[Rfam]
The record is a 146-nucleotide RNA from Adiantum capillus-veneris, which matches "small nucleolar RNA snoR134" in Rfam. It is annotated as an H/ACA-box small nucleolar RNA.
RNA sequence: AUGCACGGUUAGUAACCCCGGGCUGCCCUGAUCUGGCCAAGAAAGGAAGGUUCGGCCCUGUGAUCGUGCUACAGAACGGGCUCCGUGUUGCAGCCAUUUUUUCGUUUCCCCAUAGAAAUGGCUGUGUCAAAGAGGGCCCUACAUUU
Numbered sequence: 001a002u003g004c005a006c007g008g009u010u011a012g013u014a015a016c017c018c019c020g021g022g023c024u025g026c027c028c029u030g031a032u033c034u035g036g037c038c039a040a041g042a043a044a045g046g047a048a049g050g051u052u053c054g055g056c057c058c059u060g061u062g063a064u065c066g067u068g069c070u071a072c073a074g075a076a077c078g079g080g081c082u083c084c085g086u087g088u089u090g091c092a093g094c095c096a097u098u099u100u101u102u103c104g105u106u107u108c109c110c111c112a113u114a115g116a117a118a119u120g121g122c123u124g125u126g127u128c129a130a131a132g133a134g135g136g137c138c139c140u141a142c143a144u145u146u
Base pairs, nucleotide, nucleotide: 003069004068005067006066007065008064010063020058021057022056023055024054025053027050028049029048078139079138080137081136082135083134086129087128089126090125091124092123093122094121097117098116099115

Background
The organism belongs to Adiantum, within Eukaryota. Gene Ontology terms of the family: nucleolus and RNA processing. Rfam 15.1 lists 792 matches to the family in 228 species.